Annotation:
The record is an 88-nucleotide sequence from Brevundimonas sp. Root1423, which matches "Glycine riboswitch aptamer" in Rfam. It scores 48 bits against the family's covariance model. The base pairs follow the family's consensus structure.
RNA sequence: CGCUGGAAAGUCGCUCUCCGGAGCGCGCCGACGGAGCAAGGCUGGUCAGGGUUCUGGCGGCCGGAAUCUCUCAGGCUUCAGGACAGCG
Numbered sequence: 001c002g003c004u005g006g007a008a009a010g011u012c013g014c015u016c017u018c019c020g021g022a023g024c025g026c027g028c029c030g031a032c033g034g035a036g037c038a039a040g041g042c043u044g045g046u047c048a049g050g051g052u053u054c055u056g057g058c059g060g061c062c063g064g065a066a067u068c069u070c071u072c073a074g075g076c077u078u079c080a081g082g083a084c085a086g087c088g
Stems, first nucleotide, its partner, number of pairs: 001088005012025004027076003030072002034070003041062001